[Rfam]
RNA sequence: CUUAUCAUCAUAUCCUCACGACUAAUGAUAAUCUUUAUCCCGUGGAAUAAAGCCUCCUAUUAGCCGCGUGAACCUCAGCAAUGGAAUAAUAUACUAGCGUCCAUCGCGCCGUGGGCGGAAGUAUUCUCCGUCCUGGAGUGAGCGCUGCUGCCUAGAAGAAAGGGGCCUUAUAAGGCCCCUUUCU
Numbered sequence: 001c002u003u004a005u006c007a008u009c010a011u012a013u014c015c016u017c018a019c020g021a022c023u024a025a026u027g028a029u030a031a032u033c034u035u036u037a038u039c040c041c042g043u044g045g046a047a048u049a050a051a052g053c054c055u056c057c058u059a060u061u062a063g064c065c066g067c068g069u070g071a072a073c074c075u076c077a078g079c080a081a082u083g084g085a086a087u088a089a090u091a092u093a094c095u096a097g098c099g100u101c102c103a104u105c106g107c108g109c110c111g112u113g114g115g116c117g118g119a120a121g122u123a124u125u126c127u128c129c130g131u132c133c134u135g136g137a138g139u140g141a142g143c144g145c146u147g148c149u150g151c152c153u154a155g156a157a158g159a160a161a162g163g164g165g166c167c168u169u170a171u172a173a174g175g176c177c178c179c180u181u182u183c184u
Base pairs, nucleotide, nucleotide: 002086003085006083007082011078017070018069019068020067022063023062024061025060026059027058162179163178164177165176166175167174
Dot-bracket structure: .((..((...(.....((((.((((((..............................))))))...)))).......)...)).))...........................................................................((((((......)))))).....